c-di-GMP-I-GGC riboswitch aptamer: a 75-nucleotide sequence from Arthrobacter oryzae. The organism belongs to Arthrobacter, within Bacteria. Rfam links the family to the GO term cyclic-di-GMP binding. The family's consensus secondary structure is taken from published work. A search with the family's covariance model found it, with a score of 68 bits.
[Rfam]
Nucleotides: 075
Base pairs, nucleotide, nucleotide: 003072004071011036012035016031017030018029019028020027021026034061039068040067041066042065044064045063046062047059048058049057
Number, partner (000 for none) and nucleotide at each position: 001000a002000u003072c004071g005000a006000u007000a008000a009000a010000g011036g012035c013000a014000a015000a016031a017030c018029c019028g020027g021026c022000g023000c024000g025000a026021g027020c028019c029018g030017g031016u032000g033000a034061c035012g036011c037000a038000a039068a040067g041066c042065c043000a044064c045063g046062g047059g048058a049057c050000c051000c052000a053000a054000g055000c056000g057049g058048u059047c060000a061034g062046c063045c064044g065042g066041g067040u068039u069000g070000c071004c072003g073000a074000c075000a